Notes:
Shown here is an 85-nucleotide sequence from Leptotrombidium deliense, a member of the family "mir-7 microRNA precursor family". Rfam describes the family as follows. This family represents the microRNA (miRNA) precursor mir-7. Its family is annotated with miRNA-mediated post-transcriptional gene silencing and RISC complex in the Gene Ontology. Rfam 15.1 lists 2,589 matches to the family in 797 species. A reference for the family is Lagos-Quintana et al. (2001), "Identification of novel genes coding for small expressed RNAs", Science. Pairs were carried over by alignment from the consensus structure, which was predicted with PFOLD.

[Rfam]
RNA sequence: AUUCAUUCCCCAUUUGGAAGACUAGUGAUUUUGUUGUUCUGCACGUGAGUAACAAAAAAUCACUGUUUUCCGAUGGUGUCUGAAA
Numbered sequence: 001a002u003u004c005a006u007u008c009c010c011c012a013u014u015u016g017g018a019a020g021a022c023u024a025g026u027g028a029u030u031u032u033g034u035u036g037u038u039c040u041g042c043a044c045g046u047g048a049g050u051a052a053c054a055a056a057a058a059a060u061c062a063c064u065g066u067u068u069u070c071c072g073a074u075g076g077u078g079u080c081u082g083a084a085a
Stems, first nucleotide, its partner, number of pairs: 002084004008078001010076005016070002019068004025063007034055005